[Rfam]
RNA sequence: UUGGAAGUUUAAGGUUAUAGUAGACGUACUCGUGGCACAGCCAUGUCAAAUUCUAAUGAAUCUGUGAAUUCUGCU
Numbered sequence: 001u002u003g004g005a006a007g008u009u010u011a012a013g014g015u016u017a018u019a020g021u022a023g024a025c026g027u028a029c030u031c032g033u034g035g036c037a038c039a040g041c042c043a044u045g046u047c048a049a050a051u052u053c054u055a056a057u058g059a060a061u062c063u064g065u066g067a068a069u070u071c072u073g074c075u
Base pairs, nucleotide, nucleotide: 013042014041015040016039019075020074021073022072023071024070026038027037047064048063050061051060052059053058
RNA: Mammalian CPEB3 ribozyme
Organism: Crocodylus porosus